[Rfam]
RNA sequence: AAACCAUGGUGUGGGCAUUGAGCUUGGUAGCCCUUGAAUCUCUCGAGGCUUCACUGAAGCCUUCCAAGUUCUUCGUUGGCGGAGAUCUCAUUUCUCAGCUU
Number, nucleotide and partner (000 for none) at each position: 001a101002a000003a000004c098005c000006a095007u000008g000009g000010u000011g000012u000013g000014g000015g000016c000017a000018u000019u000020g000021a000022g000023c000024u000025u000026g000027g000028u000029a000030g000031c000032c000033c000034u000035u000036g000037a000038a000039u000040c000041u000042c000043u000044c000045g000046a000047g000048g000049c000050u000051u000052c000053a000054c000055u000056g073057a072058a000059g070060c000061c000062u000063u000064c000065c000066a000067a000068g000069u000070u059071c000072u057073u056074c000075g000076u000077u000078g000079g000080c000081g000082g000083a000084g000085a000086u000087c000088u000089c000090a000091u000092u000093u000094c000095u006096c000097a000098g004099c000100u000101u001